[Rfam]
RNA sequence: UUGGGUGCUGAGGUAGUUUAUAAAGCUGCGAUCGCUGAUAUGUUUCGCAGAUUUUAAGCUAUCUCGACACCCCA
Numbered sequence: 001u002u003g004g005g006u007g008c009u010g011a012g013g014u015a016g017u018u019u020a021u022a023a024a025g026c027u028g029c030g031a032u033c034g035c036u037g038a039u040a041u042g043u044u045u046c047g048c049a050g051a052u053u054u055u056a057a058g059c060u061a062u063c064u065c066g067a068c069a070c071c072c073c074a
Stems, first nucleotide, its partner, number of pairs: 003072003010065008022054003027049003
RNA: mir-84 microRNA precursor family
Organism: Enterobius vermicularis